[Rfam]
RNA sequence: CCAAAGGCUCUUUUAAGAGCCACCUUAACAUUUCUAAAAUGGCGAG
Numbered sequence: 001c002c003a004a005a006g007g008c009u010c011u012u013u014u015a016a017g018a019g020c021c022a023c024c025u026u027a028a029c030a031u032u033u034c035u036a037a038a039a040u041g042g043c044g045a046g
Stems, first nucleotide, its partner, number of pairs: 006021006

A member of the RNA family "Histone 3' UTR stem-loop" from Chrysochloris asiatica, 46 nucleotides long.